[Rfam]
Shown here is a 78-nucleotide RNA from Parnassius apollo, a member of the family "Mammalian CPEB3 ribozyme". Rfam 15.1 lists 5,706 matches to the family in 197 species. A search with the family's covariance model found it, with a score of 54 bits.
RNA sequence: UUUUUAUAUAUGGGGGUCAUUGUAGAAGCGUGCUCGUCGCGACCCCUGCCAGCCCUUUUUCAGGCCUGCAAUUCUGCA
Numbered sequence: 001u002u003u004u005u006a007u008a009u010a011u012g013g014g015g016g017u018c019a020u021u022g023u024a025g026a027a028g029c030g031u032g033c034u035c036g037u038c039g040c041g042a043c044c045c046c047u048g049c050c051a052g053c054c055c056u057u058u059u060u061c062a063g064g065c066c067u068g069c070a071a072u073u074c075u076g077c078a
Stems, first nucleotide, its partner, number of pairs: 013046006021078007028040003050068003054064003